[Rfam]
RNA: Glycine riboswitch aptamer
RNA sequence: CGCUGUCUUGCGGAAGAGACCGGCUAACCCCCGCGCCGAAGGAGCAACCGCCCCGGAAACUCUCAGGCAACAAGGACCGCAAGGCAUAC
Numbered sequence: 001c002g003c004u005g006u007c008u009u010g011c012g013g014a015a016g017a018g019a020c021c022g023g024c025u026a027a028c029c030c031c032c033g034c035g036c037c038g039a040a041g042g043a044g045c046a047a048c049c050g051c052c053c054c055g056g057a058a059a060c061u062c063u064c065a066g067g068c069a070a071c072a073a074g075g076a077c078c079g080c081a082a083g084g085c086a087u088a089c
Base pairs, nucleotide, nucleotide: 006084007083008082009081010080011079012078013077020033022031023030035068036067037066038064039063042062043061044060048056049055
Dot-bracket structure: .....((((((((......(.((......)).).(((((..(((...((.....))...))))).)))........)))))))).....